This 118-nucleotide sequence from Vibrio tapetis belongs to the Rfam family "Manganese Mn2+ riboswitch aptamer (yybP-ykoY)". Lineage of the source: Bacteria > Pseudomonadati > Pseudomonadota > Vibrio > Vibrio tapetis. For this family Rfam cites "Novel small RNA-encoding genes in the intergenic regions of Escherichia coli" (Argaman et al., Curr Biol, 2001). About the family: This RNA was originally discovered in E. coli during a large scale screen and was named SraF. The family was later found to exist upstream of related families of protein genes in many bacteria, including the the yybP and ykoK genes in B. subtilis. A search with the family's covariance model found it, with a score of 46 bits.
RNA sequence: CCCCAUCCCUUUGGGGAGUAGCCUCUUCUAUCACAUAAAAAUACGAUGAAGAUGGUCGUCAACAUAAUUGAAGCAAAAUCUUCGUGGCGAUCAUGACUUACAUACACUGGUGUAAGUU
Numbered sequence: 001c002c003c004c005a006u007c008c009c010u011u012u013g014g015g016g017a018g019u020a021g022c023c024u025c026u027u028c029u030a031u032c033a034c035a036u037a038a039a040a041a042u043a044c045g046a047u048g049a050a051g052a053u054g055g056u057c058g059u060c061a062a063c064a065u066a067a068u069u070g071a072a073g074c075a076a077a078a079u080c081u082u083c084g085u086g087g088c089g090a091u092c093a094u095g096a097c098u099u100a101c102a103u104a105c106a107c108u109g110g111u112g113u114a115a116g117u118u
Base pairs, nucleotide, nucleotide: 026050027049028048052094053093054092055091056090057089058088059087060086061085069084070083071082072081073080095118096117097116098115099114100113101112102111103110